Source information:
The record is a 205-nucleotide RNA from Erinaceus europaeus, which matches "Small nucleolar RNA ZL1" in Rfam. About the family: Host gene TRRAP. Predicted target U2@U47. Only GU-rich region is homologous to other known snoRNAs. Conserved in vertebrates. For this family Rfam cites "Insights into snoRNA biogenesis and processing from PAR-CLIP of snoRNA core proteins and small RNA sequencing" (Kishore et al., Genome Biol, 2013). The match comes from Rfam's covariance-model search (137 bits). The organism belongs to Erinaceus, within Eukaryota.
RNA sequence: CCAGAAGCAAAAUGAUGAGCACUGCUGGCUGGAGCUCCAAAGAGGCACAUGUGUGUAUGUGGUUGUGUGUGUGGUUGUCUGUAUUCUUGUCUGUGCAUGCACACGUAUGCGAGGGAGCAUGAAUGUGUGUGUGGCUGGCGGUAGGGACUAGCUCUGUGCCUUCUGUUGGAUCAUGACAGUCGAACUGAUAAGAUCUGAUUGCUUC
Numbered sequence: 001c002c003a004g005a006a007g008c009a010a011a012a013u014g015a016u017g018a019g020c021a022c023u024g025c026u027g028g029c030u031g032g033a034g035c036u037c038c039a040a041a042g043a044g045g046c047a048c049a050u051g052u053g054u055g056u057a058u059g060u061g062g063u064u065g066u067g068u069g070u071g072u073g074g075u076u077g078u079c080u081g082u083a084u085u086c087u088u089g090u091c092u093g094u095g096c097a098u099g100c101a102c103a104c105g106u107a108u109g110c111g112a113g114g115g116a117g118c119a120u121g122a123a124u125g126u127g128u129g130u131g132u133g134g135c136u137g138g139c140g141g142u143a144g145g146g147a148c149u150a151g152c153u154c155u156g157u158g159c160c161u162u163c164u165g166u167u168g169g170a171u172c173a174u175g176a177c178a179g180u181c182g183a184a185c186u187g188a189u190a191a192g193a194u195c196u197g198a199u200u201g202c203u204u205c
Base pairs, nucleotide, nucleotide: 004205005204006203007202008201009200010199014195015194016193026182027181028180029179030178031177036115037114038113043108045106046105050101051100052099053098054097055096056095061091065086067084068083069082070081071080117132118131119130120129135151136150137149138148153175155173156172158171160169161168
It is annotated as a C/D-box small nucleolar RNA.